[Rfam]
RNA: terC RNA
Organism: Rhodoplanes elegans
RNA sequence: GCACCGAUCCGGGCCCCUCUGGCGGCGCCUUCGCCGCGAUGUCGGAUCUUUCAC
Dot-bracket structure: .....(((((((.........((((((....))))))....)))))))......